[Rfam]
RNA sequence: UCAGGCACCAUCCAGUAGCGAGGUAUAGAGUUCCUACGGCACAUUCAACAGUAGGAACUUGAUACCGUGCUCUUGGAGGUGCUGUG
Numbered sequence: 001u002c003a004g005g006c007a008c009c010a011u012c013c014a015g016u017a018g019c020g021a022g023g024u025a026u027a028g029a030g031u032u033c034c035u036a037c038g039g040c041a042c043a044u045u046c047a048a049c050a051g052u053a054g055g056a057a058c059u060u061g062a063u064a065c066c067g068u069g070c071u072c073u074u075g076g077a078g079g080u081g082c083u084g085u086g
Stems, first nucleotide, its partner, number of pairs: 012076003017071004022066005028060010